RNA sequence: ACCGGGUUGGGUGGCGCCAACUUGUCACGGAUAUGCUUCUGUCCGGGUAGUAAGGUGUGAGGGUUGUGGCAUGCGUUGCCUUGUCGCUAUUCCCAGGAUGUGAAUGGUGCGUCCAUCUCAAACCAGGAGUCGACAUUGGGGCAUCGUCGUAAGACAAUGCACCGAGGUCACUAAGGAAGGGUGUACCGCCCCAGAUUGGUUAACAGAGCAGGGAAAAACCCUCGCUCUUGGUAGUGGGAGGAUUUCGUGCCAGAAUUCUGAUGCCACAAGACUUCGCUACAAGCUGCUAUUCGAUCACCUUGCAA
Numbered sequence: 001a002c003c004g005g006g007u008u009g010g011g012u013g014g015c016g017c018c019a020a021c022u023u024g025u026c027a028c029g030g031a032u033a034u035g036c037u038u039c040u041g042u043c044c045g046g047g048u049a050g051u052a053a054g055g056u057g058u059g060a061g062g063g064u065u066g067u068g069g070c071a072u073g074c075g076u077u078g079c080c081u082u083g084u085c086g087c088u089a090u091u092c093c094c095a096g097g098a099u100g101u102g103a104a105u106g107g108u109g110c111g112u113c114c115a116u117c118u119c120a121a122a123c124c125a126g127g128a129g130u131c132g133a134c135a136u137u138g139g140g141g142c143a144u145c146g147u148c149g150u151a152a153g154a155c156a157a158u159g160c161a162c163c164g165a166g167g168u169c170a171c172u173a174a175g176g177a178a179g180g181g182u183g184u185a186c187c188g189c190c191c192c193a194g195a196u197u198g199g200u201u202a203a204c205a206g207a208g209c210a211g212g213g214a215a216a217a218a219c220c221c222u223c224g225c226u227c228u229u230g231g232u233a234g235u236g237g238g239a240g241g242a243u244u245u246c247g248u249g250c251c252a253g254a255a256u257u258c259u260g261a262u263g264c265c266a267c268a269a270g271a272c273u274u275c276g277c278u279a280c281a282a283g284c285u286g287c288u289a290u291u292c293g294a295u296c297a298c299c300u301u302g303c304a305a
Stems, first nucleotide, its partner, number of pairs: 001048003004023007028045005050303008061292004066287005072281002075278001080270005086264002089262002093260001095259005101253001105252007113241002116239005122232009132169003136165004141160004146155003171175001178222005189213003196206003
Dot-bracket structure: ((((((((((......)))))))....(((((........)))))))).((((((((...((((.(((((.((.(....(((((.((.((..(.(((((.(...(((((((.((.(((((.(((((((((.(((.((((.((((.(((....))).)))).)))).))).(...)..(((((......(((....(((.....)))....)))....))))).)))))))))..)))))))....)))))))).)))))))))).))))).......).)).))))).))))...))))))))..
Source information:
Metazoan signal recognition particle RNA: a 305-nucleotide sequence from Phytophthora nicotianae. Its family is annotated with signal recognition particle, endoplasmic reticulum targeting and SRP-dependent cotranslational protein targeting to membrane, signal sequence recognition in the Gene Ontology. It is annotated as a non-coding RNA gene.